[Rfam]
A member of the RNA family "Molybdenum/Tungsten riboswitch aptamer (Moco RNA motif)" from Bowmanella pacifica, 134 nucleotides long. It scores 83 bits against the family's covariance model.

RNA sequence: GGUCUGAAAUACUACCGAGCCUCUGAGUCUACACCUUUUGGCAUGAUUCUUUGGCCGCAGGUCUAGUACCUGCCAGGGUUGUGCGAGAAAUCAAGCAGCCUCCCAUGUUUGGAAAGGUAACAUGCAGAACGAAA
Numbered sequence: 001g002g003u004c005u006g007a008a009a010u011a012c013u014a015c016c017g018a019g020c021c022u023c024u025g026a027g028u029c030u031a032c033a034c035c036u037u038u039u040g041g042c043a044u045g046a047u048u049c050u051u052u053g054g055c056c057g058c059a060g061g062u063c064u065a066g067u068a069c070c071u072g073c074c075a076g077g078g079u080u081g082u083g084c085g086a087g088a089a090a091u092c093a094a095g096c097a098g099c100c101u102c103c104c105a106u107g108u109u110u111g112g113a114a115a116g117g118u119a120a121c122a123u124g125c126a127g128a129a130c131g132a133a134a
Stems, first nucleotide, its partner, number of pairs: 003128002006125001013119004019055003025049005034041002057073005076101007085092002102112002
Notes
Rfam links the family to the GO terms tungstate binding, molybdenum ion binding and regulation of gene expression. The organism belongs to Bowmanella, within Bacteria.